[Rfam]
RNA: TPP riboswitch aptamer (THI element)
Organism: Rhodophyticola porphyridii
RNA sequence: CACGAGACACAGGGGCGUCUGCCGUUUGGCGGGCUGAGAAGAACCCUUUGAACCUGAACCAGAUCAUGCUGGCGGAGGGAGUGGCUCGGCGCUUCAA
Dot-bracket structure: .....(.(((((((.((((((........)))))......)..)))).....(((...((((......))))...)))..))).)............